The record is an 89-nucleotide RNA sequence from Conger conger, which matches "mir-15 microRNA precursor family" in Rfam.
A search with the family's covariance model found it, with a score of 64 bits.
The family has 164 seed sequences and 2,045 matches in Rfam 15.1.
Rfam describes the family as follows. This family represents the related mir-15a and mir-15b sequences.
The family is grouped with related families in Rfam's "mir-15 clan".
NCBI's taxonomy places the organism under Eukaryota, Opisthokonta, Craniata, Teleostomi, Conger.

[Rfam]
RNA sequence: GGCCGUCUUGCUGUAGCAGCACGUAAAUAUUGGAGUUUUACCACUGCUGAUGUCUCCAGUAUUGAUCGUGCUGCUGAAGGAAGGUUGGU
Numbered sequence: 001g002g003c004c005g006u007c008u009u010g011c012u013g014u015a016g017c018a019g020c021a022c023g024u025a026a027a028u029a030u031u032g033g034a035g036u037u038u039u040a041c042c043a044c045u046g047c048u049g050a051u052g053u054c055u056c057c058a059g060u061a062u063u064g065a066u067c068g069u070g071c072u073g074c075u076g077a078a079g080g081a082a083g084g085u086u087g088g089u
Stems, first nucleotide, its partner, number of pairs: 001089001003087001005085002014076010024065001026063010